[Rfam]
RNA sequence: GUGAUCGACACGGGAGAGACUGGCCUUGAGCCAGCGCCGAAGGAGCAACCGCCCCGGAAACUCUCAGGCCAAAGGACCGAGUCGAUCGG
Dot-bracket structure: .....((((.(((......((((.......)))).(((((..(((...((.....))...))))).))).......))).)))).....
The record is an 89-nucleotide sequence from Gluconobacter wancherniae, which matches "Glycine riboswitch aptamer" in Rfam. The base pairs follow the family's consensus structure. The organism belongs to Gluconobacter wancherniae, within Bacteria. A search with the family's covariance model found it, with a score of 72 bits.